[Rfam]
RNA sequence: GCCAUAUGAUGAGAUACAUAGAUAUCAUUAACACUUGGUGUAAAGAUGACUCUUCAUCUAUCACCCACGACUGAUGGCU
Numbered sequence: 001g002c003c004a005u006a007u008g009a010u011g012a013g014a015u016a017c018a019u020a021g022a023u024a025u026c027a028u029u030a031a032c033a034c035u036u037g038g039u040g041u042a043a044a045g046a047u048g049a050c051u052c053u054u055c056a057u058c059u060a061u062c063a064c065c066c067a068c069g070a071c072u073g074a075u076g077g078c079u
Base pairs, nucleotide, nucleotide: 001078002077003076004075031041032040033039034038